[Rfam]
RNA sequence: GUGCAUAUGGCAGUACCAUUCAAAGAGCUAUGACAACCAUGAUGCUUAUAGCUCUGGAAAUGGCGCUGUUAUCUGCAC
Number, nucleotide and partner (000 for none) at each position: 001g000002u077003g076004c075005a000006u000007a072008u071009g070010g000011c068012a067013g066014u000015a000016c063017c062018a061019u060020u059021c000022a000023a000024a055025g054026a053027g052028c051029u050030a049031u048032g000033a000034c000035a000036a000037c000038c000039a000040u000041g000042a000043u000044g000045c000046u000047u000048a031049u030050a029051g028052c027053u026054c025055u024056g000057g000058a000059a020060a019061u018062g017063g016064c000065g000066c013067u012068g011069u000070u009071a008072u007073c000074u000075g004076c003077a002078c000